The family of this 427-nucleotide RNA from Vibrio agarilyticus is "cspA thermoregulator".
Gene Ontology terms of the family: response to temperature stimulus and regulation of translation.
Lineage of the source: Bacteria > Gammaproteobacteria > Vibrionales > Vibrionaceae > Vibrio.
By type it is an RNA thermoregulator.
The family's consensus secondary structure is taken from published work.
RNA sequence: UGCUGUUUUGACCUAGACUCAGCGUUGGCUAGAAAGAAAGUUCUUUGUUCUACACAUUUCGAUGGAUUACUUGUAAAUCCCCGUCCUGUUGUACGCAAUAGCAAUUUAUUUUUCCACGCUAUCCGCGCCAAUUUGGCACUGUUUAAAGAUAUUUUAGGAAUUUACUAUGUCUAAUACCGUAACUGGUACCGUGAAAUGGUUUAACGAAACUAAGGGCUUUGGCUUCAUCAAACAAGAAAAUGGACCAGAUGUUUUCGCACACUUUUCUGCUAUUCAAGGUGACGGCUUCCGCACUCUAGCUGAAGGUCAGAAGGUCGAAUUCGUGAUCUCUCAAGGUCAAAAAGGACCUCAAGCAGAAAACAUCACUGUUGUGUAAUUUCUGUUGAAUAUUCCUUAAAAUAGCCAGCAUUACGCUGGCUAUUUUGUU
Numbered sequence: 001u002g003c004u005g006u007u008u009u010g011a012c013c014u015a016g017a018c019u020c021a022g023c024g025u026u027g028g029c030u031a032g033a034a035a036g037a038a039a040g041u042u043c044u045u046u047g048u049u050c051u052a053c054a055c056a057u058u059u060c061g062a063u064g065g066a067u068u069a070c071u072u073g074u075a076a077a078u079c080c081c082c083g084u085c086c087u088g089u090u091g092u093a094c095g096c097a098a099u100a101g102c103a104a105u106u107u108a109u110u111u112u113u114c115c116a117c118g119c120u121a122u123c124c125g126c127g128c129c130a131a132u133u134u135g136g137c138a139c140u141g142u143u144u145a146a147a148g149a150u151a152u153u154u155u156a157g158g159a160a161u162u163u164a165c166u167a168u169g170u171c172u173a174a175u176a177c178c179g180u181a182a183c184u185g186g187u188a189c190c191g192u193g194a195a196a197u198g199g200u201u202u203a204a205c206g207a208a209a210c211u212a213a214g215g216g217c218u219u220u221g222g223c224u225u226c227a228u229c230a231a232a233c234a235a236g237a238a239a240a241u242g243g244a245c246c247a248g249a250u251g252u253u254u255u256c257g258c259a260c261a262c263u264u265u266u267c268u269g270c271u272a273u274u275c276a277a278g279g280u281g282a283c284g285g286c287u288u289c290c291g292c293a294c295u296c297u298a299g300c301u302g303a304a305g306g307u308c309a310g311a312a313g314g315u316c317g318a319a320u321u322c323g324u325g326a327u328c329u330c331u332c333a334a335g336g337u338c339a340a341a342a343a344g345g346a347c348c349u350c351a352a353g354c355a356g357a358a359a360a361c362a363u364c365a366c367u368g369u370u371g372u373g374u375a376a377u378u379u380c381u382g383u384u385g386a387a388u389a390u391u392c393c394u395u396a397a398a399a400u401a402g403c404c405a406g407c408a409u410u411a412c413g414c415u416g417g418c419u420a421u422u423u424u425g426u427u
Stems, first nucleotide, its partner, number of pairs: 002008001019235001025231003036225001039224004043216002048214002057209002060206002063203006072169004078164001085158004093152001095115001097113002127137003171186003175182001238329001240327002243324001248256002261315004266311004270306002274299001276297001278295001281294001334349003338345001350373002353370001354368003376391001378389001380385001396424012